[Rfam]
RNA: Small nucleolar RNA R12
Organism: Raphanus sativus
RNA sequence: AUGAUGGUGAGGGAAAAAUCAUUCGGGUUCCAAAUGCUAAAAAUGUGAUUGUUUACCAUCUACUUUUGAUUCAU
Numbered sequence: 001a002u003g004a005u006g007g008u009g010a011g012g013g014a015a016a017a018a019u020c021a022u023u024c025g026g027g028u029u030c031c032a033a034a035u036g037c038u039a040a041a042a043a044u045g046u047g048a049u050u051g052u053u054u055a056c057c058a059u060c061u062a063c064u065u066u067u068g069a070u071u072c073a074u
Stems, first nucleotide, its partner, number of pairs: 001074004